[Rfam]
RNA sequence: GUCUUAUUAAGAGUGGUGGAGGGACUGGCCCUUUGAAACCCAGCAACCAGUAUGUUUCAUUUGCAUACAUGGUGCUAAAUCCUGCAGCAAUGCUGAAAGAUAAGGA
Numbered sequence: 001g002u003c004u005u006a007u008u009a010a011g012a013g014u015g016g017u018g019g020a021g022g023g024a025c026u027g028g029c030c031c032u033u034u035g036a037a038a039c040c041c042a043g044c045a046a047c048c049a050g051u052a053u054g055u056u057u058c059a060u061u062u063g064c065a066u067a068c069a070u071g072g073u074g075c076u077a078a079a080u081c082c083u084g085c086a087g088c089a090a091u092g093c094u095g096a097a098a099g100a101u102a103a104g105g106a
Base pairs, nucleotide, nucleotide: 002105003104004103005102006101007100008099013041015040016039017038021031022030023029025084027082028081042076043075044074045073047072048071050068051067052066053065054064055063080098085095086094087093088092
RNA: SAM riboswitch aptamer (S box leader)
Organism: Clostridium fungisolvens